[Rfam]
RNA sequence: GGCUGGUCUGAUAGUAGUGGGUUAUCAGAACACAUUAACAUUAGUGUUCCUGAAGUUAGUGUAAAACUCCCCCAAUCCUAAAUGACUGGCUUUAA
Dot-bracket structure: ((((((((......((.((((...........(((.((.................)).))).........)))).)...)...))))))))....
Numbered sequence: 001g002g003c004u005g006g007u008c009u010g011a012u013a014g015u016a017g018u019g020g021g022u023u024a025u026c027a028g029a030a031c032a033c034a035u036u037a038a039c040a041u042u043a044g045u046g047u048u049c050c051u052g053a054a055g056u057u058a059g060u061g062u063a064a065a066a067c068u069c070c071c072c073c074a075a076u077c078c079u080a081a082a083u084g085a086c087u088g089g090c091u092u093u094a095a
Stems, first nucleotide, its partner, number of pairs: 001091008015080001016076001018074004033061003037057002
Rfam assigns this 95-nucleotide sequence from Chlorocebus sabaeus to the family "Y RNA".
It scores 41 bits against the family's covariance model.
The organism belongs to Chlorocebus, within Eukaryota.
About the family: Y RNAs are components of the Ro ribonucleoprotein particle (Ro RNP), in association with Ro60 and La proteins.